[Rfam]
RNA sequence: GUGGGACUCAAACUGUGGGGGCACUUUCUGGUCUGUCGAGGAAAGUGCCGCCAUCUUUUGAGUUUUAC
Numbered sequence: 001g002u003g004g005g006a007c008u009c010a011a012a013c014u015g016u017g018g019g020g021g022c023a024c025u026u027u028c029u030g031g032u033c034u035g036u037c038g039a040g041g042a043a044a045g046u047g048c049c050g051c052c053a054u055c056u057u058u059u060g061a062g063u064u065u066u067a068c
Stems, first nucleotide, its partner, number of pairs: 004065009015054004020049009